[Rfam]
RNA sequence: ACGCUGCAUCAGUACAGCGACAUCACCUUACCGAGUGGUGAUGCCUGCUGGCGAUGCCAGCAAGA
Numbered sequence: 001a002c003g004c005u006g007c008a009u010c011a012g013u014a015c016a017g018c019g020a021c022a023u024c025a026c027c028u029u030a031c032c033g034a035g036u037g038g039u040g041a042u043g044c045c046u047g048c049u050g051g052c053g054a055u056g057c058c059a060g061c062a063a064g065a
Stems, first nucleotide, its partner, number of pairs: 003061002006057004015050005022042006

Record summary
Trypanosomatid snoRNA TB11Cs5H2: a 65-nucleotide sequence from Leishmania mexicana. Lineage of the source: Eukaryota > Discoba > Trypanosomatida > Leishmania > Leishmania mexicana. It is annotated as an H/ACA-box small nucleolar RNA. Rfam's curators put it in the seed alignment.